[Rfam]
RNA sequence: AGAGGCCCUCUGCAGCCGAGGUGGAAUGCUUGCCUCAUCGCUGUGGCGAUGAAGCAAGCAUUCCGCCAGGCUGCUCACACUGCCUGC
Numbered sequence: 001a002g003a004g005g006c007c008c009u010c011u012g013c014a015g016c017c018g019a020g021g022u023g024g025a026a027u028g029c030u031u032g033c034c035u036c037a038u039c040g041c042u043g044u045g046g047c048g049a050u051g052a053a054g055c056a057a058g059c060a061u062u063c064c065g066c067c068a069g070g071c072u073g074c075u076c077a078c079a080c081u082g083c084c085u086g087c
Stems, first nucleotide, its partner, number of pairs: 004084003012074006020067014037050005
The family of this 87-nucleotide RNA sequence from Cnephaeus nilssonii is "mir-9195 microRNA precursor family". The match comes from Rfam's covariance-model search (106 bits). The source organism's lineage runs through Eukaryota, Euteleostomi, Dipnotetrapodomorpha, Mammalia and Cnephaeus. Gene Ontology terms of the family: miRNA-mediated post-transcriptional gene silencing and RISC complex. Rfam 15.1 lists 438 matches to the family in 7 species. Pairs were carried over by alignment from the consensus structure, which was predicted with RNAalifold.